[Rfam]
RNA sequence: GAUUAUCGAGGUCGGAAAUGGUUCCCGACACACUCGAAAGAGUACCUGAGAUGAUGGAUACACCGCCCAUCCGAUAAUC
Numbered sequence: 001g002a003u004u005a006u007c008g009a010g011g012u013c014g015g016a017a018a019u020g021g022u023u024c025c026c027g028a029c030a031c032a033c034u035c036g037a038a039a040g041a042g043u044a045c046c047u048g049a050g051a052u053g054a055u056g057g058a059u060a061c062a063c064c065g066c067c068c069a070u071c072c073g074a075u076a077a078u079c
Stems, first nucleotide, its partner, number of pairs: 001079008011029005019065004031048001032043004053071005
Shown here is a 79-nucleotide RNA sequence from Desulfosporosinus youngiae, a member of the family "skipping-rope RNA". Pairs were carried over by alignment from the consensus structure, which is taken from published work. NCBI's taxonomy places the organism under Bacteria, Bacillota, Desulfitobacteriaceae, Desulfosporosinus, Desulfosporosinus youngiae.